This 72-nucleotide sequence from Nicator chloris belongs to the Rfam family "mir-92 microRNA precursor family". This family represents the microRNA precursor mir-92. Human miR-92 has two predicted hairpin precursor sequences: mir-92-1 on chromosome 13 and mir-92-2 on chromosome X. miR-92 has also been cloned from mouse embryonic stem cells. The mature sequence is excised from the 3' arm of the hairpin.
[Rfam]
RNA sequence: UGGGUGGGGAUUUGUUGCAUUACUUGUAGCUGUAUGUAGAGUAUUGCACUUGUCCCGGCCUGUGGAGGAAAG
Dot-bracket structure: (((((.(((((..((.(((.(((((.............))))).)))))..))))).)))))..........
Annotation: Clan: mir-92 microRNA precursor clan. A search with the family's covariance model found it, with a score of 71 bits. The base pairs follow the family's consensus structure, which was predicted with PFOLD.